A member of the RNA family "RAGATH-18 RNA" from Bacillus manliponensis, 62 nucleotides long. It is annotated as a small RNA. Rfam describes the family as follows. Actinobacteria, Firmicutes, Fusobacteria, Thermotogae (1 example).
[Rfam]
RNA sequence: CCCUCGGAGAGUUAUAUCAAACCGUAGUAGCUUCGGCAAGGCGGGACUCGUUGAACAGGGAA
Numbered sequence: 001c002c003c004u005c006g007g008a009g010a011g012u013u014a015u016a017u018c019a020a021a022c023c024g025u026a027g028u029a030g031c032u033u034c035g036g037c038a039a040g041g042c043g044g045g046a047c048u049c050g051u052u053g054a055a056c057a058g059g060g061a062a
Stems, first nucleotide, its partner, number of pairs: 001060004009049005022044003030037002